RNA: Selenocysteine insertion sequence 1
RNA sequence: CCAGCACUGAUGAUGGUCUGCCUUCAAACCAGCCUGCUGGUGAGGCAUACCUGAUGAUCUGGCGUG
Numbered sequence: 001c002c003a004g005c006a007c008u009g010a011u012g013a014u015g016g017u018c019u020g021c022c023u024u025c026a027a028a029c030c031a032g033c034c035u036g037c038u039g040g041u042g043a044g045g046c047a048u049a050c051c052u053g054a055u056g057a058u059c060u061g062g063c064g065u066g
Stems, first nucleotide, its partner, number of pairs: 001066001004063002015051003019047006030039003